[Rfam]
RNA sequence: CGGCAACAAUGAUGACAGGAGUCGUACCUGUAUGUAAUGUGUCAUUACCACGUGGAGACACCAGUCCCUCUAAGCUGAUGUUGCCG
Numbered sequence: 001c002g003g004c005a006a007c008a009a010u011g012a013u014g015a016c017a018g019g020a021g022u023c024g025u026a027c028c029u030g031u032a033u034g035u036a037a038u039g040u041g042u043c044a045u046u047a048c049c050a051c052g053u054g055g056a057g058a059c060a061c062c063a064g065u066c067c068c069u070c071u072a073a074g075c076u077g078a079u080g081u082u083g084c085c086g
Stems, first nucleotide, its partner, number of pairs: 001086007
The record is an 86-nucleotide RNA sequence from Buceros rhinoceros, which matches "Small nucleolar RNA SNORD127" in Rfam. It is annotated as a C/D-box small nucleolar RNA.